Rfam assigns this 86-nucleotide RNA from Hydrogenobaculum sp. Y04AAS1 to the family "Fluoride riboswitch aptamer (crcB RNA motif)". The sequence is in the family's curated seed alignment. For this family Rfam cites "Widespread genetic switches and toxicity resistance proteins for fluoride" (Baker et al., Science, 2012).
RNA sequence: CAGGUUUAAGGAGAUGGCGUUCUCCUUGAUGCUCAUAAAAGCAUCAAAACCGCCUCACAUAUAAGGCUAAUAACGCCUACCUGCUC
Numbered sequence: 001c002a003g004g005u006u007u008a009a010g011g012a013g014a015u016g017g018c019g020u021u022c023u024c025c026u027u028g029a030u031g032c033u034c035a036u037a038a039a040a041g042c043a044u045c046a047a048a049a050c051c052g053c054c055u056c057a058c059a060u061a062u063a064a065g066g067c068u069a070a071u072a073a074c075g076c077c078u079a080c081c082u083g084c085u086c
Stems, first nucleotide, its partner, number of pairs: 010025004016077006052067004